[Rfam]
The record is a 73-nucleotide sequence from Gracilimonas sediminicola, which matches "2dG-II purine riboswitch aptamer" in Rfam. Rfam links the family to the GO term purine nucleobase biosynthetic process. The literature on the family includes a 2017 paper in Proc Natl Acad Sci U S A by Weinberg et al., "Bioinformatic analysis of riboswitch structures uncovers variant classes with altered ligand specificity". The match comes from Rfam's covariance-model search (63 bits). Its Rfam clan is "Purine riboswitches".
RNA sequence: AUUAUGUGUAAUCCCUGAAAUAUGGUCAGGGAGCAUCCACCAGCGAACCGUAAAUUUGCUGUCACCACCCUGA
Numbered sequence: 001a002u003u004a005u006g007u008g009u010a011a012u013c014c015c016u017g018a019a020a021u022a023u024g025g026u027c028a029g030g031g032a033g034c035a036u037c038c039a040c041c042a043g044c045g046a047a048c049c050g051u052a053a054a055u056u057u058g059c060u061g062u063c064a065c066c067a068c069c070c071u072g073a
Stems, first nucleotide, its partner, number of pairs: 002072001006068003012032007042060006